[Rfam]
RNA sequence: AACCUAAUGGGCUUUCCCUUCCCGGUUCUUCCCGGAGCCAAGAAAAGCUGGGUUGAGAGGGCGAUUAAAAAAACAA
Numbered sequence: 001a002a003c004c005u006a007a008u009g010g011g012c013u014u015u016c017c018c019u020u021c022c023c024g025g026u027u028c029u030u031c032c033c034g035g036a037g038c039c040a041a042g043a044a045a046a047g048c049u050g051g052g053u054u055g056a057g058a059g060g061g062c063g064a065u066u067a068a069a070a071a072a073a074c075a076a
Stems, first nucleotide, its partner, number of pairs: 014059003018055001021052005029044003034039001
RNA: mir-320 microRNA precursor family
Organism: Sapajus apella